Shown here is an 84-nucleotide RNA sequence from Candidatus Undinarchaeum marinum, a member of the family "tRNA". The family's consensus secondary structure is taken from published work. A search with the family's covariance model found it, with a score of 59 bits.
[Rfam]
Nucleotides: 084
Stems, first nucleotide, its partner, number of pairs: 001083007010026003028044005060076005
Number, partner (000 for none) and nucleotide at each position: 001083g002082c003081c004080g005079c006078g007077g008000u009000c010026g011025c012024a013000u014000a015000a016000c017000c018000u019000g020000g021000u022000a023000u024012u025011g026010c027000g028044c029043u030042g031041g032040u033000c034000u035000u036000g037000a038000a039000a040032a041031c042030c043029a044028g045000u046000u047000u048000c049000c050000u051000u052000u053000u054000g055000g056000a057000u058000a059000u060076g061075c062074a063073g064072g065000u066000u067000c068000a069000a070000a071000u072064c073063c074062u075061g076060c077007c078006c079005g080004c081003g082002g083001c084000g